[Rfam]
RNA sequence: CCGUGCACGAAUUUCGUGCACCGGGCCUCUAGUAUAUAUAUAUAUAUACUAGAGGCCCGGUGCACGAAAUUCGUGCACGGAG
Dot-bracket structure: ((.((((((((.(((.(((((((((((((((((((..........))))))))))))))))))).))).)))))))).))..
RNA: mir-9243 microRNA precursor family
Organism: Cnephaeus nilssonii